About this RNA: Rfam assigns this 370-nucleotide sequence from Hymenobacter swuensis to the family "transfer-messenger RNA". By type it is a non-coding RNA gene. The organism belongs to Hymenobacter swuensis, within Bacteria. The base pairs follow the family's consensus structure, which is taken from published work. Rfam describes the family as follows. Bacterial tmRNA, also known as 10Sa RNA or SsrA, is named for its dual tRNA and mRNA-like properties. Its role is to liberate the mRNA from a stalled ribosome. The family is grouped with related families in Rfam's "tRNA clan".
RNA sequence: GGGGCCGACCGGAAUUGACAGCUUGUGCAUGUCGCGAGUAAGCGUGUCGGGAGUUGGAUGAAUCUCCCGUAAAAAAAGCCGUCCAAACAAUAACUGGCGAGUAUAGCUACGCCAUGGCUGCCUAGUUUAGAACUAAGCACUGUCAUCGUCCCGCACCCGUAUUCCUUCUCACGGGUGAGUUCGGGGCGUCGUAAGAGUUAGGAUAGUGCAGGUGGCACUGUGACGCCUGCGCGAAACUCAAACAGAUAAGGGGAAAUCAAGGGCCUGAUGUGCGCCUGGUUUCCUUCGAAAAUCCAAGCAUAGAUACACACGUAGAAAGCUCGACGCCUUCCUUGUCUGGACCAGGGUUCGAAUCCCUGCGGCUCCACUU
Numbered sequence: 001g002g003g004g005c006c007g008a009c010c011g012g013a014a015u016u017g018a019c020a021g022c023u024u025g026u027g028c029a030u031g032u033c034g035c036g037a038g039u040a041a042g043c044g045u046g047u048c049g050g051g052a053g054u055u056g057g058a059u060g061a062a063u064c065u066c067c068c069g070u071a072a073a074a075a076a077a078g079c080c081g082u083c084c085a086a087a088c089a090a091u092a093a094c095u096g097g098c099g100a101g102u103a104u105a106g107c108u109a110c111g112c113c114a115u116g117g118c119u120g121c122c123u124a125g126u127u128u129a130g131a132a133c134u135a136a137g138c139a140c141u142g143u144c145a146u147c148g149u150c151c152c153g154c155a156c157c158c159g160u161a162u163u164c165c166u167u168c169u170c171a172c173g174g175g176u177g178a179g180u181u182c183g184g185g186g187c188g189u190c191g192u193a194a195g196a197g198u199u200a201g202g203a204u205a206g207u208g209c210a211g212g213u214g215g216c217a218c219u220g221u222g223a224c225g226c227c228u229g230c231g232c233g234a235a236a237c238u239c240a241a242a243c244a245g246a247u248a249a250g251g252g253g254a255a256a257u258c259a260a261g262g263g264c265c266u267g268a269u270g271u272g273c274g275c276c277u278g279g280u281u282u283c284c285u286u287c288g289a290a291a292a293u294c295c296a297a298g299c300a301u302a303g304a305u306a307c308a309c310a311c312g313u314a315g316a317a318a319g320c321u322c323g324a325c326g327c328c329u330u331c332c333u334u335g336u337c338u339g340g341a342c343c344a345g346g347g348u349u350c351g352a353a354u355c356c357c358u359g360c361g362g363c364u365c366c367a368c369u370u
Stems, first nucleotide, its partner, number of pairs: 001366007019339003023335001025333001027331001031328001033326002035323005043312005048069005053083001055081003059077001117141001119139003123135003147188006154177007163203004169197001206232009217247001219245001250287002252284007262276003269303001271300003343359005